[Rfam]
RNA sequence: UGGGAGGAUGAUAUGAGCCUGUUUGGUGAGGAACUCCUGCAGUGGCGGGAUCCCCACUCAGAUACCUGAUGACAUACACAGGGGCCAUCUGACCAGAC
Number, nucleotide and partner (000 for none) at each position: 001u000002g000003g000004g000005a000006g000007g094008a000009u000010g000011a000012u000013a000014u000015g000016a000017g000018c000019c000020u000021g000022u062023u061024u060025g059026g057027u056028g055029a000030g053031g052032a051033a000034c000035u000036c049037c048038u047039g046040c045041a000042g000043u000044g000045g040046c039047g038048g037049g036050a000051u032052c031053c030054c000055c028056a027057c026058u000059c025060a024061g023062a022063u000064a000065c000066c000067u000068g000069a000070u000071g000072a000073c000074a000075u000076a000077c000078a000079c000080a000081g000082g000083g000084g000085c000086c000087a000088u000089c000090u000091g000092a000093c000094c007095a000096g000097a000098c000

A member of the RNA family "Small nucleolar RNA SNORD67" from Chanos chanos, 98 nucleotides long. Lineage of the source: Eukaryota > Opisthokonta > Chanoidei > Chanidae > Chanos. Pairs were carried over by alignment from the consensus structure. The family's RNA type in Rfam is C/D-box small nucleolar RNA. snoRNA HBII-166 belongs to the C/D family of snoRNAs.